[Rfam]
RNA sequence: AAACACCUCAAAGAAUCGCGAACGAAGCGUAACAUACUUAAAGUGAACUAAUUUUAUUAGUUAGACUUUUUUAAAACUGUUUUUUCAUCAUGUAUGAAAAAAUAGUCAAUGCUUUGGGGAAAGUCCUCGGAUACUAGGGCAGAAAGUGUCGCCUUUAGUAUAGGGUCAUAUUAAAGUUCAAUAAUCCUGCGAAGGGCUUAUAUUAUUUUAAGUCAUAGCUCUAUGGAUAGAUGAAUAUUUAAUAUUGAUCAUCAUAGCAAAGUUAUGCGAUUGUAUCAAAUCUAUAAUUUUAUUAUUGAAGAAAUUGUGAGACUUAUUUUUUUAUAAAAAUUUGUCUCUGUUCCGAUAUAAUAAGUGAUAUAACACAACGAGGCUUACUCUUGAGAUGUU
Numbered sequence: 001a002a003a004c005a006c007c008u009c010a011a012a013g014a015a016u017c018g019c020g021a022a023c024g025a026a027g028c029g030u031a032a033c034a035u036a037c038u039u040a041a042a043g044u045g046a047a048c049u050a051a052u053u054u055u056a057u058u059a060g061u062u063a064g065a066c067u068u069u070u071u072u073a074a075a076a077c078u079g080u081u082u083u084u085u086c087a088u089c090a091u092g093u094a095u096g097a098a099a100a101a102a103u104a105g106u107c108a109a110u111g112c113u114u115u116g117g118g119g120a121a122a123g124u125c126c127u128c129g130g131a132u133a134c135u136a137g138g139g140c141a142g143a144a145a146g147u148g149u150c151g152c153c154u155u156u157a158g159u160a161u162a163g164g165g166u167c168a169u170a171u172u173a174a175a176g177u178u179c180a181a182u183a184a185u186c187c188u189g190c191g192a193a194g195g196g197c198u199u200a201u202a203u204u205a206u207u208u209u210a211a212g213u214c215a216u217a218g219c220u221c222u223a224u225g226g227a228u229a230g231a232u233g234a235a236u237a238u239u240u241a242a243u244a245u246u247g248a249u250c251a252u253c254a255u256a257g258c259a260a261a262g263u264u265a266u267g268c269g270a271u272u273g274u275a276u277c278a279a280a281u282c283u284a285u286a287a288u289u290u291u292a293u294u295a296u297u298g299a300a301g302a303a304a305u306u307g308u309g310a311g312a313c314u315u316a317u318u319u320u321u322u323u324a325u326a327a328a329a330a331u332u333u334g335u336c337u338c339u340g341u342u343c344c345g346a347u348a349u350a351a352u353a354a355g356u357g358a359u360a361u362a363a364c365a366c367a368a369c370g371a372g373g374c375u376u377a378c379u380c381u382u383g384a385g386a387u388g389u390u
Base pairs, nucleotide, nucleotide: 002390003389004388005387007385008384009383010382011381014272015271016270017269018268019267023116024115025114026113027112028111029110030109121376122375123374125373126372127371128370138150139149140148141147151166152165153164154163155162168243169242177235178234179233180232184228185227186226187225194221195220196219197218205213206212207211274360275359276358277357278356
RNA: RNase MRP
Organism: Neocallimastix californiae